[Rfam]
RNA sequence: GACGGGGCUUACAAGGUCCUGUAACAAACGAGAGCGGCGCGAGCCGUCAGUAGGACUUACAGGAAGCCGAAGUUCCGUCGUGCGUUUUGAAAAACGA
Numbered sequence: 001g002a003c004g005g006g007g008c009u010u011a012c013a014a015g016g017u018c019c020u021g022u023a024a025c026a027a028a029c030g031a032g033a034g035c036g037g038c039g040c041g042a043g044c045c046g047u048c049a050g051u052a053g054g055a056c057u058u059a060c061a062g063g064a065a066g067c068c069g070a071a072g073u074u075c076c077g078u079c080g081u082g083c084g085u086u087u088u089g090a091a092a093a094a095c096g097a
Stems, first nucleotide, its partner, number of pairs: 001079010015068002019062006029053001034047005083096003
A member of the RNA family "Archaeal large subunit ribosomal RNA" from Halomicrobium mukohataei, 97 nucleotides of a longer RNA. NCBI's taxonomy places the organism under Archaea, Methanobacteriota, Halobacteria, Halobacteriales, Halomicrobium mukohataei. It is one of the family's seed sequences.